[Rfam]
RNA sequence: UGAUGACCGUUCCUCCUCCUGCUUAGAGCCCUAGCAAGUAGGAUUUUAGGUCAUCACAGAGCAAACAUGGACUACUUCACUCGGAGUUGAGGCAGUGGUGCUGCCAGUGUCUAUUCCGAAAUUUGCGGGUCCAGACAUUU
Numbered sequence: 001u002g003a004u005g006a007c008c009g010u011u012c013c014u015c016c017u018c019c020u021g022c023u024u025a026g027a028g029c030c031c032u033a034g035c036a037a038g039u040a041g042g043a044u045u046u047u048a049g050g051u052c053a054u055c056a057c058a059g060a061g062c063a064a065a066c067a068u069g070g071a072c073u074a075c076u077u078c079a080c081u082c083g084g085a086g087u088u089g090a091g092g093c094a095g096u097g098g099u100g101c102u103g104c105c106a107g108u109g110u111c112u113a114u115u116c117c118g119a120a121a122u123u124u125g126c127g128g129g130u131c132c133a134g135a136c137a138u139u140u
Stems, first nucleotide, its partner, number of pairs: 001056008014043004018038001020036004069132005081119007089111001091105004
This 140-nucleotide RNA sequence from Erpetoichthys calabaricus belongs to the Rfam family "Small nucleolar RNA SNORA79". The source organism's lineage runs through Eukaryota, Chordata, Teleostomi, Cladistia and Erpetoichthys. It is annotated as an H/ACA-box small nucleolar RNA. Rfam describes the family as follows. ACA65 (SNORA79) is a member of the H/ACA class of snoRNAs that guide the sites of modification of uridines to pseudouridines. This snoRNA was identified by computational screening and its expression in mouse experimentally verified by Northern blot and primer extension analysis.